[Rfam]
RNA sequence: UUUAUUUUUUAACACUAAAACACACACAUAUCGCAAGCUAAUGAUCGGGGUGCUACGUAAGUGGUUGAUUUAUUAGGAUAUGUGGAGGCUAAAC
Number, nucleotide and partner (000 for none) at each position: 001u000002u000003u000004a000005u000006u000007u000008u000009u000010u000011a000012a000013c000014a000015c000016u000017a000018a000019a000020a000021c000022a000023c000024a000025c084026a083027c082028a081029u080030a079031u078032c077033g000034c000035a000036a000037g000038c000039u075040a074041a073042u072043g071044a069045u068046c067047g066048g000049g000050g000051u000052g065053c064054u063055a062056c061057g000058u000059a000060a000061g056062u055063g054064g053065u052066u047067g046068a045069u044070u000071u043072a042073u041074u040075a039076g000077g032078a031079u030080a029081u028082g027083u026084g025085g000086a000087g000088g000089c000090u000091a000092a000093a000094c000
Overview:
The record is a 94-nucleotide sequence from Actinobacillus ureae, which matches "t44 RNA" in Rfam. Rfam's curators put it in the seed alignment. It is annotated as a small RNA. The source organism's lineage runs through Bacteria, Pasteurellales, Pasteurellaceae, Actinobacillus and Actinobacillus ureae.